Shown here is a 136-nucleotide RNA sequence from Parvibaculum sedimenti, a member of the family "Manganese Mn2+ riboswitch aptamer (yybP-ykoY)".
About the family: This RNA was originally discovered in E. coli during a large scale screen and was named SraF. The family was later found to exist upstream of related families of protein genes in many bacteria, including the the yybP and ykoK genes in B. subtilis. The specific functions of these proteins are unknown, but this structured RNA element may be involved in their genetic regulation as a riboswitch.
Rfam links the family to the GO term manganese ion binding.
The organism belongs to Parvibaculum, within Bacteria.
Pairs were carried over by alignment from the consensus structure.
[Rfam]
RNA sequence: CCUUAGGGGAGUAGUCGCCCUCCAUCACGAGAGGGGCGCGCAUCAACAAACUUGAUCUUCGGAUCAUGGUGCGCGCGGCAGGUGCGGAAGCCGCACCGCUUGGCGAGACCUUUGGCUUGAGGUGUGUCUCCCUGCC
Numbered sequence: 001c002c003u004u005a006g007g008g009g010a011g012u013a014g015u016c017g018c019c020c021u022c023c024a025u026c027a028c029g030a031g032a033g034g035g036g037c038g039c040g041c042a043u044c045a046a047c048a049a050a051c052u053u054g055a056u057c058u059u060c061g062g063a064u065c066a067u068g069g070u071g072c073g074c075g076c077g078g079c080a081g082g083u084g085c086g087g088a089a090g091c092c093g094c095a096c097c098g099c100u101u102g103g104c105g106a107g108a109c110c111u112u113u114g115g116c117u118u119g120a121g122g123u124g125u126g127u128c129u130c131c132c133u134g135c136c
Stems, first nucleotide, its partner, number of pairs: 019034003036076010053066005